A member of the RNA family "mir-737 microRNA precursor family" from Pampusana beccarii, 63 nucleotides long. Rfam 15.1 lists 233 matches to the family in 207 species. Rfam links the family to the GO terms RISC complex and miRNA-mediated post-transcriptional gene silencing.
RNA sequence: UGGGUUUUCUAGGUUUUGAUUUUUAUUACAUCUUUGUGCAAAAAUCAAAACCUAAAGAAAACA
Numbered sequence: 001u002g003g004g005u006u007u008u009c010u011a012g013g014u015u016u017u018g019a020u021u022u023u024u025a026u027u028a029c030a031u032c033u034u035u036g037u038g039c040a041a042a043a044a045u046c047a048a049a050a051c052c053u054a055a056a057g058a059a060a061a062c063a
Base pairs, nucleotide, nucleotide: 005059006058007057008056010054011053012052013051014050015049016048017047018046019045020044021043022042023041024040